The family of this 65-nucleotide RNA from Apis mellifera is "mir-14 microRNA precursor family". Rfam's curators put it in the seed alignment. Rfam links the family to the GO terms RISC complex and miRNA-mediated post-transcriptional gene silencing. On this family, see Li et al., BMC Genomics 2009: "Direct sequencing and expression analysis of a large number of miRNAs in Aedes aegypti and a multi-species survey of novel mosquito miRNAs". Lineage of the source: Eukaryota > Neoptera > Endopterygota > Hymenoptera > Apis. Pairs were carried over by alignment from the consensus structure, which was predicted with RNAalifold.

RNA sequence: AGUGGGGGUGAGAAACUGGCUUGGCUCUCUGUGCUACGAUAGUCAGUCUUUUUCUCUCUCCUAUC
Numbered sequence: 001a002g003u004g005g006g007g008g009u010g011a012g013a014a015a016c017u018g019g020c021u022u023g024g025c026u027c028u029c030u031g032u033g034c035u036a037c038g039a040u041a042g043u044c045a046g047u048c049u050u051u052u053u054c055u056c057u058c059u060c061c062u063a064u065c
Base pairs, nucleotide, nucleotide: 002064003063004062005061006060007059008058010056011055012054013053015051018048019047020046021045023043